The family of this 87-nucleotide RNA sequence from Bacillus sp. FJAT-50079 is "c-di-GMP-I riboswitch aptamer".
[Rfam]
RNA sequence: CAUAGAAAAGGGCAAACCCAUUGAAAGAUGGGGACGCAAAAUCACGGAUCUAAAGUAUGAAAAUACAAUGAUGGCCGGGUUACCUUA
Numbered sequence: 001c002a003u004a005g006a007a008a009a010g011g012g013c014a015a016a017c018c019c020a021u022u023g024a025a026a027g028a029u030g031g032g033g034a035c036g037c038a039a040a041a042u043c044a045c046g047g048a049u050c051u052a053a054a055g056u057a058u059g060a061a062a063a064u065a066c067a068a069u070g071a072u073g074g075c076c077g078g079g080u081u082a083c084c085u086u087a
Base pairs, nucleotide, nucleotide: 012037013036017032018031019030020029021028022027040081041080042079043078045077046076047075048072049071050070055066056065057064058063
Annotation:
The family's consensus secondary structure is taken from published work. The source organism's lineage runs through Bacteria, Bacillati, Caryophanales, Bacillaceae and Bacillus.